Rfam assigns this 131-nucleotide sequence from Microcebus murinus to the family "Small nucleolar RNA SNORA64/SNORA10 family". Rfam describes the family as follows. This family belongs to the H/ACA class of small nucleolar RNAs (snoRNAs) which act as guides in the the modification of uridines to pseudouridines. The family has 9 seed sequences and 703 matches in Rfam 15.1. Clan: SNORA64 clan. Taxonomically the source falls in Microcebus (Eukaryota, Opisthokonta, Dipnotetrapodomorpha, Boreoeutheria). On this family, see Narayanan et al., EMBO J 1999: "Nucleolar localization signals of box H/ACA small nucleolar RNAs". It is annotated as an H/ACA-box small nucleolar RNA. Pairs were carried over by alignment from the consensus structure, which is taken from published work.

[Rfam]
RNA sequence: UCUCUCUCUACUCUGCAAAGUUACAUUCAGCUUCACCUGCAUGACUUUCAUGAUAAGAGACAGAAAAGAUCUCCUGGGGACCUCAGAUUGGCCUUAUAGUGGUUUCUCUUUCCUUGAGGGGUACCACAGGU
Numbered sequence: 001u002c003u004c005u006c007u008c009u010a011c012u013c014u015g016c017a018a019a020g021u022u023a024c025a026u027u028c029a030g031c032u033u034c035a036c037c038u039g040c041a042u043g044a045c046u047u048u049c050a051u052g053a054u055a056a057g058a059g060a061c062a063g064a065a066a067a068g069a070u071c072u073c074c075u076g077g078g079g080a081c082c083u084c085a086g087a088u089u090g091g092c093c094u095u096a097u098a099g100u101g102g103u104u105u106c107u108c109u110u111u112c113c114u115u116g117a118g119g120g121g122u123a124c125c126a127c128a129g130g131u
Stems, first nucleotide, its partner, number of pairs: 002063002005060004014055002019046005026039001071121005077115003085109003090104004